[Rfam]
RNA sequence: AGCCAAACCCUAUCUCCAUCUCCACGUGGUAAUAACUGGAAGUUCUUUCUUAAUGAAAAACUGCAGACAGGGAAGG
Numbered sequence: 001a002g003c004c005a006a007a008c009c010c011u012a013u014c015u016c017c018a019u020c021u022c023c024a025c026g027u028g029g030u031a032a033u034a035a036c037u038g039g040a041a042g043u044u045c046u047u048u049c050u051u052a053a054u055g056a057a058a059a060a061c062u063g064c065a066g067a068c069a070g071g072g073a074a075g076g
Base pairs, nucleotide, nucleotide: 009076010075011074013072014071015070018030019029020028041062042061043060044059046057047056049055
A member of the RNA family "drz-agam-1 ribozyme" from Hermetia illucens, 76 nucleotides long. The base pairs follow the family's consensus structure, which is taken from published work. NCBI's taxonomy places the organism under Eukaryota, Eumetazoa, Protostomia, Brachycera, Hermetia. Its family is annotated with catalytic activity in the Gene Ontology.